[Rfam]
A member of the RNA family "Aggregatibacter sRNA 22" from Caviibacterium pharyngocola, 104 nucleotides long. A reference for the family is Oogai et al. (2017), "Small RNA repertoires and their intraspecies variation in Aggregatibacter actinomycetemcomitans", DNA Res. The organism belongs to Caviibacterium, within Bacteria.

RNA sequence: UUGCGGGACAAACGCUUGCGUUUGAACGUUGGCUUUGCCAACGGCUCCAAAGGAGCGAGCGAAGCGAGUAUUGGGACAGAUAAAAAUUCGUUCAGAAUUUUUAU
Numbered sequence: 001u002u003g004c005g006g007g008a009c010a011a012a013c014g015c016u017u018g019c020g021u022u023u024g025a026a027c028g029u030u031g032g033c034u035u036u037g038c039c040a041a042c043g044g045c046u047c048c049a050a051a052g053g054a055g056c057g058a059g060c061g062a063a064g065c066g067a068g069u070a071u072u073g074g075g076a077c078a079g080a081u082a083a084a085a086a087u088u089c090g091u092u093c094a095g096a097a098u099u100u101u102u103a104u
Base pairs, nucleotide, nucleotide: 009024010023011022012021013020014019027043028042029041030040031039032038033037044056045055046054047053048052059091060090061089062088063087096104